Rfam assigns this 150-nucleotide RNA from Anaerobium acetethylicum to the family "Ribosomal protein L10 leader". The family's RNA type in Rfam is cis-regulatory leader. About the family: This family is a putative r-protein leader autoregulatory structure found in B. subtilis and other low-GC Gram-positive bacteria. It is located in the 5' untranslated regions of mRNAs encoding ribosomal proteins L10 and L12 (rplJ-rplL). The match comes from Rfam's covariance-model search (76 bits).
[Rfam]
RNA sequence: UGUAAAAGCAACAAACUGCCGUAGACAGUAGGUGCCGUAAGGCAUAAGUUUGAAACGCCUACCGAGGAUAUGAUUUCUGAUAAGAAUGAAUUCUAAAUCCUCUUUGUCUUAGGAGCAAUCUGAAGAUAAAGAGGAUUUUUUUAAUCUUAG
Numbered sequence: 001u002g003u004a005a006a007a008g009c010a011a012c013a014a015a016c017u018g019c020c021g022u023a024g025a026c027a028g029u030a031g032g033u034g035c036c037g038u039a040a041g042g043c044a045u046a047a048g049u050u051u052g053a054a055a056c057g058c059c060u061a062c063c064g065a066g067g068a069u070a071u072g073a074u075u076u077c078u079g080a081u082a083a084g085a086a087u088g089a090a091u092u093c094u095a096a097a098u099c100c101u102c103u104u105u106g107u108c109u110u111a112g113g114a115g116c117a118a119u120c121u122g123a124a125g126a127u128a129a130a131g132a133g134g135a136u137u138u139u140u141u142u143a144a145u146c147u148u149a150g
Base pairs, nucleotide, nucleotide: 028062029061030060031059032058033057034043035042036041098135099134100133101132102131103130104129105128106127107126108125109124110123